[Rfam]
RNA sequence: UGACUUAUAAAUAAAAAACACACGUAAACCGUCACAUUGGUCGGGGUGCAGAUCGAAAGAUUUGUCGGCUUAAUGGGGUUUGCGGAGGCUUAAC
Numbered sequence: 001u002g003a004c005u006u007a008u009a010a011a012u013a014a015a016a017a018a019c020a021c022a023c024g025u026a027a028a029c030c031g032u033c034a035c036a037u038u039g040g041u042c043g044g045g046g047u048g049c050a051g052a053u054c055g056a057a058a059g060a061u062u063u064g065u066c067g068g069c070u071u072a073a074u075g076g077g078g079u080u081u082g083c084g085g086a087g088g089c090u091u092a093a094c
Stems, first nucleotide, its partner, number of pairs: 023084008035075005040069004048065005
This 94-nucleotide sequence from a Kangiellaceae bacterium belongs to the Rfam family "t44 RNA".
Taxonomically the source falls in Kangiellaceae (Bacteria, Pseudomonadati, Gammaproteobacteria, Kangiellales).
It is annotated as a small RNA.
The match comes from Rfam's covariance-model search (72 bits).
Rfam describes the family as follows. This family consists of a number of bacterial RNA genes of between 135 and 170 bases in length.